[Rfam]
RNA sequence: GGCGGGCCCCUUCGCAUGGCGGAGCGGUGAACCUGGUCAGGUCGGGAACGAAGCAGCCACAGUCGUAUCCCGUUAGUGCCGAAGUCAGGCUCGCCACC
Numbered sequence: 001g002g003c004g005g006g007c008c009c010c011u012u013c014g015c016a017u018g019g020c021g022g023a024g025c026g027g028u029g030a031a032c033c034u035g036g037u038c039a040g041g042u043c044g045g046g047a048a049c050g051a052a053g054c055a056g057c058c059a060c061a062g063u064c065g066u067a068u069c070c071c072g073u074u075a076g077u078g079c080c081g082a083a084g085u086c087a088g089g090c091u092c093g094c095c096a097c098c
Base pairs, nucleotide, nucleotide: 004092005091006090007089008088010084011083012082013081014080015076017075018074019073020072021071022070024066025065026064027063028062034059035058036057037056042051043050044049
A member of the RNA family "Bacterial small signal recognition particle RNA" from Pigmentiphaga aceris, 98 nucleotides long. The match comes from Rfam's covariance-model search (74 bits). The signal recognition particle (SRP) is a universally conserved ribonucleoprotein involved in the co-translational targeting of proteins to membranes. NCBI's taxonomy places the organism under Bacteria, Pseudomonadati, Pseudomonadota, Alcaligenaceae, Pigmentiphaga.